RNA: Small nucleolar RNA SNORD94
Organism: Synaphobranchus kaupii
RNA sequence: AGGGCAGUGAUGAUUGGCGCAGGGGUACGGACCUCAGCUGAUGAUGGGGGCUGAGCGUUGGCGACUGCUCUGUUCAGCUGGCAUGUGGCCAGCUGUCCUGGGGGAGGCAUCAGCGCGAAACAAACGCCGAAAUCUGAGCCUC
Numbered sequence: 001a002g003g004g005c006a007g008u009g010a011u012g013a014u015u016g017g018c019g020c021a022g023g024g025g026u027a028c029g030g031a032c033c034u035c036a037g038c039u040g041a042u043g044a045u046g047g048g049g050g051c052u053g054a055g056c057g058u059u060g061g062c063g064a065c066u067g068c069u070c071u072g073u074u075c076a077g078c079u080g081g082c083a084u085g086u087g088g089c090c091a092g093c094u095g096u097c098c099u100g101g102g103g104g105a106g107g108c109a110u111c112a113g114c115g116c117g118a119a120a121c122a123a124a125c126g127c128c129g130a131a132a133u134c135u136g137a138g139c140c141u142c
Stems, first nucleotide, its partner, number of pairs: 002141004